[Rfam]
RNA sequence: AGUGAAGGUUGACCACCUACACAAAAAGACUUUGUGCUUGAAGUCUACAGCUCACCUGUUUUGUAUUCAGGACGUUGUCUGCAACAACGGUCAACAGUACGCCCGACACCGUACUGCCACCUCCCUAUCCCCCCCCGCCAACAUGCUUCU
Numbered sequence: 001a002g003u004g005a006a007g008g009u010u011g012a013c014c015a016c017c018u019a020c021a022c023a024a025a026a027a028g029a030c031u032u033u034g035u036g037c038u039u040g041a042a043g044u045c046u047a048c049a050g051c052u053c054a055c056c057u058g059u060u061u062u063g064u065a066u067u068c069a070g071g072a073c074g075u076u077g078u079c080u081g082c083a084a085c086a087a088c089g090g091u092c093a094a095c096a097g098u099a100c101g102c103c104c105g106a107c108a109c110c111g112u113a114c115u116g117c118c119a120c121c122u123c124c125c126u127a128u129c130c131c132c133c134c135c136c137g138c139c140a141a142c143a144u145g146c147u148u149c150u
Base pairs, nucleotide, nucleotide: 002022003021004020005018007017008016009015028045029044030043031042032041033040047078048077049076050075051074055071056070057069058068089121090120091119095116096115097114098113101112102111
RNA: Barley yellow dwarf virus 5'UTR
Organism: Luteovirus pavhordei